[Rfam]
RNA sequence: GGGGUGAUGAUCUGACUUAGCAGUGUUUAUGGCGGUGGCUGAGCUCUAAGAAAGGAGUGAUGCUUUAUGUUCAUCCUAGGAAAGGGACUUCCGCCAUGACUGUGUAUCAGGCGUUGACAUUGGCGAUUGCCUUUGCCACCUUGAUCAUUACCAUUGAUCGACA
Numbered sequence: 001g002g003g004g005u006g007a008u009g010a011u012c013u014g015a016c017u018u019a020g021c022a023g024u025g026u027u028u029a030u031g032g033c034g035g036u037g038g039c040u041g042a043g044c045u046c047u048a049a050g051a052a053a054g055g056a057g058u059g060a061u062g063c064u065u066u067a068u069g070u071u072c073a074u075c076c077u078a079g080g081a082a083a084g085g086g087a088c089u090u091c092c093g094c095c096a097u098g099a100c101u102g103u104g105u106a107u108c109a110g111g112c113g114u115u116g117a118c119a120u121u122g123g124c125g126a127u128u129g130c131c132u133u134u135g136c137c138a139c140c141u142u143g144a145u146c147a148u149u150a151c152c153a154u155u156g157a158u159c160g161a162c163a
Stems, first nucleotide, its partner, number of pairs: 035139005054077002057074004098118001100116001102114004144158004149153001
This 163-nucleotide RNA from Enterococcus pallens belongs to the Rfam family "Listeria sRNA rli28". The base pairs follow the family's consensus structure, which was predicted with RNAalifold. The organism belongs to Enterococcus pallens, within Bacteria. Rfam classes the family as a small RNA.